[Rfam]
RNA sequence: CCAGUCGGCUGGACGACCGCUCCCGCAAGCGCUGAAAGGCGGCGGGGGAGGAAAGUCCGGGCUCCAUGGAAACACGGUGCCGGGUAACGCCCGGCGAGGGCGACCUCAGGGAAAGUGCCGCAGAAAGCAAACCGCCUGCUCAAAACCCGCAAGGGGGCGCGCAGGUAAGGGUGAAAGGGUGGGGUAAGAGCCCACCGCGGUCCCGGCAACGGGGCCGGCAUGGUAAACCCCACCGGGAGCAAGACCGAAUAGGGACGGCGCGGGAGGCAACUCCCAGGCGUGUUUUCACGUUGACCGUCCGGGUAGGUCGCGCGAGGCGUCCGGUAACGGACGUCCCAGAUGAAUGGUCGUCGCGGCGGGUUCGCCCGCCGAACAGAACCCGGCUUACAGGCCGACUGGCACC
Numbered sequence: 001c002c003a004g005u006c007g008g009c010u011g012g013a014c015g016a017c018c019g020c021u022c023c024c025g026c027a028a029g030c031g032c033u034g035a036a037a038g039g040c041g042g043c044g045g046g047g048g049a050g051g052a053a054a055g056u057c058c059g060g061g062c063u064c065c066a067u068g069g070a071a072a073c074a075c076g077g078u079g080c081c082g083g084g085u086a087a088c089g090c091c092c093g094g095c096g097a098g099g100g101c102g103a104c105c106u107c108a109g110g111g112a113a114a115g116u117g118c119c120g121c122a123g124a125a126a127g128c129a130a131a132c133c134g135c136c137u138g139c140u141c142a143a144a145a146c147c148c149g150c151a152a153g154g155g156g157g158c159g160c161g162c163a164g165g166u167a168a169g170g171g172u173g174a175a176a177g178g179g180u181g182g183g184g185u186a187a188g189a190g191c192c193c194a195c196c197g198c199g200g201u202c203c204c205g206g207c208a209a210c211g212g213g214g215c216c217g218g219c220a221u222g223g224u225a226a227a228c229c230c231c232a233c234c235g236g237g238a239g240c241a242a243g244a245c246c247g248a249a250u251a252g253g254g255a256c257g258g259c260g261c262g263g264g265a266g267g268c269a270a271c272u273c274c275c276a277g278g279c280g281u282g283u284u285u286u287c288a289c290g291u292u293g294a295c296c297g298u299c300c301g302g303g304u305a306g307g308u309c310g311c312g313c314g315a316g317g318c319g320u321c322c323g324g325u326a327a328c329g330g331a332c333g334u335c336c337c338a339g340a341u342g343a344a345u346g347g348u349c350g351u352c353g354c355g356g357c358g359g360g361u362u363c364g365c366c367c368g369c370c371g372a373a374c375a376g377a378a379c380c381c382g383g384c385u386u387a388c389a390g391g392c393c394g395a396c397u398g399g400c401a402c403c
Base pairs, nucleotide, nucleotide: 001399002398003397004396005395006394007393008392009391010390011388012352013351014350015349016348017347018346020048021047022046023045024044025043026042053386054385055384057383058382059381060380061379062239063238064237065236070286071285072284075235076234077233078232079231080094081093082092083091084090095109096107097106098105099104110230111229115228116227117224118223119222132170133169134166135165136164137163138162139161141159178196179195180194181193182192183191197219198217199216200215201214202213203212204211205210243309244308245307246306253300254299255298256297257296258295277292278291279290280289281288316335317334318333319332320331321330322329323328